[Rfam]
RNA sequence: UUGGGGACACACGACUGGCGCAGGUGGGUCAACCACCAGGGAGUGAAGUCGAGCGCAUCGAACGCCUGGGUGCCCUCA
Numbered sequence: 001u002u003g004g005g006g007a008c009a010c011a012c013g014a015c016u017g018g019c020g021c022a023g024g025u026g027g028g029u030c031a032a033c034c035a036c037c038a039g040g041g042a043g044u045g046a047a048g049u050c051g052a053g054c055g056c057a058u059c060g061a062a063c064g065c066c067u068g069g070g071u072g073c074c075c076u077c078a
Stems, first nucleotide, its partner, number of pairs: 005050002010045003015040002017066004024036004055073005
ZMP/ZTP riboswitch aptamer (pfl RNA motif): a 78-nucleotide RNA from Nocardioides mesophilus. The family has 185 seed sequences and 3,295 matches in Rfam 15.1.